Shown here is a 424-nucleotide RNA from Spiroplasma syrphidicola, a member of the family "transfer-messenger RNA". NCBI's taxonomy places the organism under Bacteria, Mycoplasmatota, Mollicutes, Spiroplasmataceae, Spiroplasma syrphidicola. It scores 104 bits against the family's covariance model.

RNA sequence: GGGGGUGUCUAGGUUUCGACAGGAGUGGUUGAAUUUUAUAGGCAGUAGUUUGGCAGACUAUAAUGCUACUAGGUUUGAAGAAACGCAAACAAAAACAACAAAGAAGAUAAAAUUGAAAUGCCAGCAUUCAUGAUGAAUAAUCAAUUUGCUGGUUCAAUGCUAGCUGCUUAAUUAACUCGCUGUUAGAGUUUUAGUUAGCCGUAAUAGAAACUAGUUGUAGGUUAAUAGUUUUUAUCGUAGGAAAAAAAUAAUCUAACCGGAAUAAUAAGGGGUAAUGGUAUUAUUUUUGGUUCCAAAUUACCUAGUAAUUUAAUUAGUUGUUCUGUCCUACCAUUAAAUUAUGAAUAAAGCUGAUAGAACUAAACUGUAGAUUAUAAGAGGAAAGCAUUUGUGGACGCGGGUUCGAUUCCCGCCACCUCCACCA
Dot-bracket structure: (((((((............((.(((((.(....((((((((.((((...((((.(...........).)))).......................................................................................(((((.((...........)).))))).........................[[...(...(((..]]...................)))...)...(.(((((((....[[[[[[.....))))))).)........]]]]]].(((((((((((((..[[[[.[[[)))..))))))))))..........]]].]]]]...))))....))))))))....).))))).))...(((((.......))))))))))))....